Annotation
Plastid-rps18 3UTR RNA: a 57-nucleotide RNA from Gossypium hirsutum. The family's RNA type in Rfam is cis-regulatory element. The family has 238 seed sequences and 1,462 matches in Rfam 15.1. From the family's description: Plastid rps18 is a non-coding RNA (ncRNA) present in plastids. It was identified as a short stem-loop motif in the 3 prime untranslate region (3UTR) of rps18 gene. Pairs were carried over by alignment from the consensus structure, which was predicted with LocARNA.

[Rfam]
RNA sequence: UGCACGUAUUUUACAAUUUAGAAGCAAAUGUUUCUUGUACAGAUUGUGUAUUAAUCA
Numbered sequence: 001u002g003c004a005c006g007u008a009u010u011u012u013a014c015a016a017u018u019u020a021g022a023a024g025c026a027a028a029u030g031u032u033u034c035u036u037g038u039a040c041a042g043a044u045u046g047u048g049u050a051u052u053a054a055u056c057a
Stems, first nucleotide, its partner, number of pairs: 018037001020035006